[Rfam]
RNA sequence: GUUGGGAAAUGAUGAGAAUAUAUCGAUAUAUCAGAGGCUCAGUUAUCUGUGCUUUGCUGAAUAAAUUUUGCACGUCAGUCUGAUCCCAAU
Numbered sequence: 001g002u003u004g005g006g007a008a009a010u011g012a013u014g015a016g017a018a019u020a021u022a023u024c025g026a027u028a029u030a031u032c033a034g035a036g037g038c039u040c041a042g043u044u045a046u047c048u049g050u051g052c053u054u055u056g057c058u059g060a061a062u063a064a065a066u067u068u069u070g071c072a073c074g075u076c077a078g079u080c081u082g083a084u085c086c087c088a089a090u
Stems, first nucleotide, its partner, number of pairs: 001090007